Plastid-rps12 3UTR RNA: a 102-nucleotide RNA sequence from Cucurbita maxima. The family's consensus secondary structure was predicted with LocARNA. From the family's description: Plastid rpl20 is a non-coding RNA (ncRNA) recognised in plastids. It was found in the three prime untranslated region (3UTR) of rps12 gene, its 3UTR location sugest a role in transcript maduration. A search with the family's covariance model found it, with a score of 80 bits. For this family Rfam cites "Retrograde signaling in plants: A critical review focusing on the GUN pathway and beyond" (Richter et al., Plant Commun, 2023).
RNA sequence: GGUUUCUAUUGGUGCAAAUCCAAUCAUCUCAAUUUUUAAUUUUAGAUGAGAAAGAAUUUCCUCGGUAGCAAAUGCUUAUCCAUUAAGUAGAGGAAAUUCUAU
Numbered sequence: 001g002g003u004u005u006c007u008a009u010u011g012g013u014g015c016a017a018a019u020c021c022a023a024u025c026a027u028c029u030c031a032a033u034u035u036u037u038a039a040u041u042u043u044a045g046a047u048g049a050g051a052a053a054g055a056a057u058u059u060c061c062u063c064g065g066u067a068g069c070a071a072a073u074g075c076u077u078a079u080c081c082a083u084u085a086a087g088u089a090g091a092g093g094a095a096a097u098u099c100u101a102u
Stems, first nucleotide, its partner, number of pairs: 009023004059092001061090002064080005